[Rfam]
RNA: mir-184 microRNA precursor family
Organism: Coturnix japonica
RNA sequence: CUGCUCUCACCCCCUUAUCACUUUUCCAGCCCAGCUUCUUCGCUCUGACUGUUGGACGGAGAACUGAUAAGGGUGUGUGGGUGG
Number, nucleotide and partner (000 for none) at each position: 001c000002u000003g000004c000005u000006c000007u000008c000009a000010c000011c000012c073013c072014c071015u070016u069017a068018u067019c066020a065021c000022u063023u062024u061025u060026c059027c058028a000029g000030c055031c054032c000033a000034g000035c000036u000037u000038c000039u000040u000041c000042g000043c000044u000045c000046u000047g000048a000049c000050u000051g000052u000053u000054g031055g030056a000057c000058g027059g026060a025061g024062a023063a022064c000065u020066g019067a018068u017069a016070a015071g014072g013073g012074u000075g000076u000077g000078u000079g000080g000081g000082u000083g000084g000